A member of the RNA family "Alphaproteobacterial sRNA ar35" from Rhizobium sp. BK251, 143 nucleotides long. The pairing is the family consensus, mapped onto this sequence. On this family, see del Val et al., RNA Biol 2012: "A survey of sRNA families in alpha-proteobacteria". Taxonomically the source falls in Rhizobium (Bacteria, Pseudomonadota, Alphaproteobacteria, Hyphomicrobiales).
RNA sequence: AGCGGCAUUGCUGGUGAGCGCUGGAAAGUAUCUGUCGCUCGCAAUGUUGUAAUGGCUUAUGACCUUGACCACGGAUGUACUGGCAUUGGUAGGUAAGCGAUUAUGAGGAAGGUCGGUGCGCUUUUGCCCCGGCCUUUUUUAUU
Numbered sequence: 001a002g003c004g005g006c007a008u009u010g011c012u013g014g015u016g017a018g019c020g021c022u023g024g025a026a027a028g029u030a031u032c033u034g035u036c037g038c039u040c041g042c043a044a045u046g047u048u049g050u051a052a053u054g055g056c057u058u059a060u061g062a063c064c065u066u067g068a069c070c071a072c073g074g075a076u077g078u079a080c081u082g083g084c085a086u087u088g089g090u091a092g093g094u095a096a097g098c099g100a101u102u103a104u105g106a107g108g109a110a111g112g113u114c115g116g117u118g119c120g121c122u123u124u125u126g127c128c129c130c131g132g133c134c135u136u137u138u139u140u141a142u143u
Stems, first nucleotide, its partner, number of pairs: 003049007016040005052101002055098004062090003066085002069083003103142014118127003